Background: Shown here is a 76-nucleotide RNA, a member of the family "L13-Bacteroidia ribosomal protein leader". Rfam classes the family as a cis-regulatory leader. Rfam's curators put it in the seed alignment.

RNA sequence: GGGGAGAGACUUAGAAUCCCCGUGAAUCAGGGUGUGAAUAGCAGCGUCUUUGGCCGGGCGUAGUGGUUCGUGAAUC
Numbered sequence: 001g002g003g004g005a006g007a008g009a010c011u012u013a014g015a016a017u018c019c020c021c022g023u024g025a026a027u028c029a030g031g032g033u034g035u036g037a038a039u040a041g042c043a044g045c046g047u048c049u050u051u052g053g054c055c056g057g058g059c060g061u062a063g064u065g066g067u068u069c070g071u072g073a074a075u076c
Stems, first nucleotide, its partner, number of pairs: 001021005035070005041064002044061006